[Rfam]
RNA sequence: GUUGUUCCGGUUCACGCCUGGCCAUUGGGGCCUGGCGACCCGGGUCC
Numbered sequence: 001g002u003u004g005u006u007c008c009g010g011u012u013c014a015c016g017c018c019u020g021g022c023c024a025u026u027g028g029g030g031c032c033u034g035g036c037g038a039c040c041c042g043g044g045u046c047c
Stems, first nucleotide, its partner, number of pairs: 004046001007043004015037004020032004